[Rfam]
A member of the RNA family "Small nucleolar RNA snoR138" from Panicum hallii, 158 nucleotides long. Lineage of the source: Eukaryota > Embryophyta > Magnoliopsida > Panicoideae > Panicum hallii. The family's RNA type in Rfam is H/ACA-box small nucleolar RNA. The match comes from Rfam's covariance-model search (45 bits).

RNA sequence: AUUGCUUCUUGAAUAACCGGUUGCAGACAAUAUCUCGUUCGCAGGCGGUUCAGACAGGGGCAUAUAACGAAUUUGAAUCCCCACAAGGGAAGGGUUAUUUCCCUUGACCCUUUCUCGUUUGGUUUUCAUAUAGAUUUACCUGUAUCAUUUGAAACUAU
Numbered sequence: 001a002u003u004g005c006u007u008c009u010u011g012a013a014u015a016a017c018c019g020g021u022u023g024c025a026g027a028c029a030a031u032a033u034c035u036c037g038u039u040c041g042c043a044g045g046c047g048g049u050u051c052a053g054a055c056a057g058g059g060g061c062a063u064a065u066a067a068c069g070a071a072u073u074u075g076a077a078u079c080c081c082c083a084c085a086a087g088g089g090a091a092g093g094g095u096u097a098u099u100u101c102c103c104u105u106g107a108c109c110c111u112u113u114c115u116c117g118u119u120u121g122g123u124u125u126u127c128a129u130a131u132a133g134a135u136u137u138a139c140c141u142g143u144a145u146c147a148u149u150u151g152a153a154a155c156u157a158u
Base pairs, nucleotide, nucleotide: 003062004061005060006059007058009057015050016049017048018047019046021044022043024041026039027038028037074151075150076149077148078147081122082121083120087116088115092110093109094108095107096106097105129144130143131142132141133140